[Rfam]
RNA sequence: GUGGGCUAUGGCGACCUCAAGCCUCAAACUUACACGGGUAUGGCGGUGGGCGCGCUAUGUGCCAUUUCGGGUGUCCUCACUAUAGCGCUACCAGUUCCGGUCAUCGUGUCCAAC
Numbered sequence: 001g002u003g004g005g006c007u008a009u010g011g012c013g014a015c016c017u018c019a020a021g022c023c024u025c026a027a028a029c030u031u032a033c034a035c036g037g038g039u040a041u042g043g044c045g046g047u048g049g050g051c052g053c054g055c056u057a058u059g060u061g062c063c064a065u066u067u068c069g070g071g072u073g074u075c076c077u078c079a080c081u082a083u084a085g086c087g088c089u090a091c092c093a094g095u096u097c098c099g100g101u102c103a104u105c106g107u108g109u110c111c112a113a114c
Stems, first nucleotide, its partner, number of pairs: 001114002004111002007108005013102004019096002037077002040074001049063003

The family of this 114-nucleotide sequence from Rhodamnia argentea is "Potassium channel RNA editing signal". From the family's description: This family represents a group of sequences related to the human potassium channel Kv1.1 hairpin element which directs the efficient modification of an adenosine to inosine by an adenosine deaminase acting on RNA (ADAR). The ADAR modification causes an isoleucine/valine recoding event which lies in the ion-conducting pore of the potassium channel. It is thought that this editing event targets the process of fast inactivation and allows a more rapid recovery from inactivation at negative potentials. The family's consensus secondary structure is taken from published work.